[Rfam]
RNA: MIR812 microRNA precursor family
Organism: Oryza glumipatula
RNA sequence: AAAAAAAACAAACCCUGGUUUCCGUGCCCAACGUUUGACCGUCCGUCUUAUUUAAAAAAAUUAUGAAAAAAAAUUAAAAAGACAAGUCAUGCAUAAAAUAUUAAUCAUGUUUUAUCACCCAACAACAAUGAAAAUACGAAUUAUAAAAAAAUUUUCAUAUAAGACAGACAGUCAAAGUUGGACACGGAAACCCAGGGUUUGCCUUUUU
Numbered sequence: 001a002a003a004a005a006a007a008a009c010a011a012a013c014c015c016u017g018g019u020u021u022c023c024g025u026g027c028c029c030a031a032c033g034u035u036u037g038a039c040c041g042u043c044c045g046u047c048u049u050a051u052u053u054a055a056a057a058a059a060a061u062u063a064u065g066a067a068a069a070a071a072a073a074u075u076a077a078a079a080a081g082a083c084a085a086g087u088c089a090u091g092c093a094u095a096a097a098a099u100a101u102u103a104a105u106c107a108u109g110u111u112u113u114a115u116c117a118c119c120c121a122a123c124a125a126c127a128a129u130g131a132a133a134a135u136a137c138g139a140a141u142u143a144u145a146a147a148a149a150a151a152u153u154u155u156c157a158u159a160u161a162a163g164a165c166a167g168a169c170a171g172u173c174a175a176a177g178u179u180g181g182a183c184a185c186g187g188a189a190a191c192c193c194a195g196g197g198u199u200u201g202c203c204u205u206u207u208u
Base pairs, nucleotide, nucleotide: 028181029180030179031178032177034176035175036174037173038172039171041169042168043167045165046164047163048162049161050160051159